Background:
Rfam assigns this 211-nucleotide RNA sequence from Streptomyces sp. F-1 to the family "Streptomyces RNA 1601". The organism belongs to Streptomyces, within Bacteria. The family's RNA type in Rfam is small RNA.
[Rfam]
RNA sequence: CACGACCGGUCGGACGCCAUCAGUGUGUUCGGCCCACAAGUGGAGGCUCCGAACUCCCACCCGACCGCCCUCCGGGACGGCGGGUCAUCCGGUCAGGCGGCCGCCAUCGUUCCGUACGGACGAUGGAGUCGCCCGAUUGUGCGCCCCGCGUUCACCGCGUCGGUGCUCCGGUGACAAGGAGCCCCGCCUGUGAUCGUCCGGGGCAUUUUUU
Number, nucleotide and partner (000 for none) at each position: 001c000002a000003c000004g094005a093006c092007c091008g090009g089010u000011c000012g030013g029014a000015c000016g000017c000018c000019a000020u000021c000022a000023g000024u000025g000026u000027g000028u000029u013030c012031g086032g085033c084034c083035c082036a000037c063038a000039a000040g060041u059042g058043g057044a055045g054046g000047c000048u000049c000050c000051g000052a000053a000054c045055u044056c000057c043058c042059a041060c040061c000062c000063g037064a000065c080066c079067g078068c076069c075070c074071u000072c000073c000074g070075g069076g068077a000078c067079g066080g065081c000082g035083g034084g033085u032086c031087a000088u000089c009090c008091g007092g006093u005094c004095a000096g133097g132098c131099g000100g130101c000102c000103g000104c126105c125106a124107u123108c122109g121110u120111u119112c000113c000114g000115u000116a000117c000118g000119g111120a110121c109122g108123a107124u106125g105126g104127a000128g000129u000130c100131g098132c097133c096134c000135g000136a000137u000138u000139g000140u000141g000142c000143g204144c203145c202146c201147c200148g199149c196150g195151u000152u000153c000154a000155c000156c192157g191158c190159g188160u000161c186162g185163g184164u000165g182166c181167u180168c179169c178170g000171g000172u000173g000174a000175c000176a000177a000178g169179g168180a167181g166182c165183c000184c163185c162186g161187c000188c159189u000190g158191u157192g156193a000194u000195c150196g149197u000198c000199c148200g147201g146202g145203g144204c143205a000206u000207u000208u000209u000210u000211u000